The family of this 74-nucleotide sequence from Euglena gracilis is "tRNA". It is one of the family's seed sequences. By type it is a transfer RNA. The source organism's lineage runs through Eukaryota, Discoba, Euglenozoa, Euglenida and Euglena.
RNA sequence: GGGCUUGUAGCUCAGUGGACUAGAGCACGUGGCUACGAACUACGGAGUCAGGGGUUCGAAUCCCUUCUUGCCCG
Number, nucleotide and partner (000 for none) at each position: 001g073002g072003g071004c070005u000006u000007g067008u000009a000010g026011c025012u024013c023014a000015g000016u000017g000018g000019a000020c000021u000022a000023g013024a012025g011026c010027a000028c044029g043030u042031g041032g040033c000034u000035a000036c000037g000038a000039a000040c032041u031042a030043c029044g028045g000046a000047g000048u000049c000050a066051g065052g064053g063054g062055u000056u000057c000058g000059a000060a000061u000062c054063c053064c052065u051066u050067c007068u000069u000070g004071c003072c002073c001074g000